RNA sequence: AUCCCGAAAGGGCAAACCUACCCGAAAGGGAGGGUCGCAAAGCCAUGGGCCUAAAGCAGGUGGUGCUAGGGCUGCCAGGCUACCGAA
Numbered sequence: 001a002u003c004c005c006g007a008a009a010g011g012g013c014a015a016a017c018c019u020a021c022c023c024g025a026a027a028g029g030g031a032g033g034g035u036c037g038c039a040a041a042g043c044c045a046u047g048g049g050c051c052u053a054a055a056g057c058a059g060g061u062g063g064u065g066c067u068a069g070g071g072c073u074g075c076c077a078g079g080c081u082a083c084c085g086a087a
Base pairs, nucleotide, nucleotide: 012038013037017033018032019031021030022029023028041081042080043079044078046077047076048075049072050071051070056066057065058064
Dot-bracket structure: ...........((...(((.(((....))))))...))..((((.((((((....(((.....)))...)))..)))))))......

The record is an 87-nucleotide RNA sequence from Clostridiales bacterium PH28_bin88, which matches "c-di-GMP-I riboswitch aptamer" in Rfam. The match comes from Rfam's covariance-model search (73 bits). The family's consensus secondary structure is taken from published work. Taxonomically the source falls in Eubacteriales (Bacteria, Bacillati, Bacillota, Clostridia).